[Rfam]
Shown here is a 74-nucleotide RNA from Albula goreensis, a member of the family "mir-23 microRNA precursor family". On this family, see Chen et al., Genes Dev 2005: "The developmental miRNA profiles of zebrafish as determined by small RNA cloning".
RNA sequence: GGCUGUGUGGGUUCCUGGUGUGGUGAUUUGUAAGUUAGGGCAAAAAUCACAUUGCCAGGGAUUACCACACAACC
Numbered sequence: 001g002g003c004u005g006u007g008u009g010g011g012u013u014c015c016u017g018g019u020g021u022g023g024u025g026a027u028u029u030g031u032a033a034g035u036u037a038g039g040g041c042a043a044a045a046a047u048c049a050c051a052u053u054g055c056c057a058g059g060g061a062u063u064a065c066c067a068c069a070c071a072a073c074c
Stems, first nucleotide, its partner, number of pairs: 001074002004071003008067003011062010023050007
Gene Ontology terms of the family: gene silencing by miRNA and RISC complex. NCBI's taxonomy places the organism under Eukaryota, Craniata, Elopocephalai, Albulidae, Albula.